Annotation: The record is a 494-nucleotide part of an RNA from Cryptomonas paramaecium, which matches "Eukaryotic large subunit ribosomal RNA" in Rfam. The family's consensus secondary structure is taken from published work.

[Rfam]
RNA sequence: CCCUCCGAAAUUUCCCUCAGGAUAGCUGGAGCAUUUACAGUCUUAUCAGGUAAAGCGAAUGAUUAGAGGAUUCGGGAAAUUCAGUUUUUUCGACCUAUUCUCAAACUUUAAACAGGUAAGAAAAGCAUGUUGCUUGGUUGAACAUGUUUAGACGAUGUAUGCUCUUAGUGGGCCAUUUUUGGUAAGCAGAACUGGCGAUGCGGGAUGAACCGAAAGCGAUGUUAAGGUGCCUCACUACGUGCUUAUUUAGAAACCAUAAAAGGUGUUAGUGCAUAUAGACAGCAGGGCGGUGGUCAUGGAAGUCGAUAUCCGCUAAAGAGUGUGUAACAACUCACCUGCCGAAUGCACUUGCCCUGAAAAUGGAUGGCGCUAAGCACGUGACCGAUACAUUGCCGUCGAAAAAUUUUGUGUUUUUUUUUCGGCGAGUAGGAGGGCGUCGAGUUUGCGUCGAAGUUUUGCGCGUGAGCCAAAAUGGAGCAUUCUUGAGUGCAGAU
Dot-bracket structure: ((((((....(.(((....))).)...((((((.......(((((((.....(((....(((..(.(((..((((((.(......).))))))))).)..)))..)).).....))))))).(((((((((.........)))))))))..........))))))......((((.(((((.....))))).))))....(((......)))...(((((.(...(((......(.(..(((..................(((.((.(((((((.......(((((.(((..(((.........)))..))).....(...((......)).).)))))...))))))).)))))..................)))..)))))...).)))))(((((((((.............)))))))))....))))))(.(((((..(((......((.....((....))....))...)))..)))))..).....